[Rfam]
RNA sequence: UCCCAGCGAGGAAACAGUCACAUGUCUUACCUCUUGUCCUAGUCCCAGAGCCUAUAAAGGUGAACACGUCAGGGCUGGCUGGGGGAGAAGAGGAAAGUUUGUUCCAGAAGGAACUUUCUGAGGGAU
Numbered sequence: 001u002c003c004c005a006g007c008g009a010g011g012a013a014a015c016a017g018u019c020a021c022a023u024g025u026c027u028u029a030c031c032u033c034u035u036g037u038c039c040u041a042g043u044c045c046c047a048g049a050g051c052c053u054a055u056a057a058a059g060g061u062g063a064a065c066a067c068g069u070c071a072g073g074g075c076u077g078g079c080u081g082g083g084g085g086a087g088a089a090g091a092g093g094a095a096a097g098u099u100u101g102u103u104c105c106a107g108a109a110g111g112a113a114c115u116u117u118c119u120g121a122g123g124g125a126u
Stems, first nucleotide, its partner, number of pairs: 001125004
The family of this 126-nucleotide sequence from Rousettus aegyptiacus is "Small nucleolar RNA SNORD22". For this family Rfam cites "A mammalian gene with introns instead of exons generating stable RNA products" (Tycowski et al., Nature, 1996). It scores 137 bits against the family's covariance model. Taxonomically the source falls in Rousettus (Eukaryota, Gnathostomata, Amniota, Chiroptera).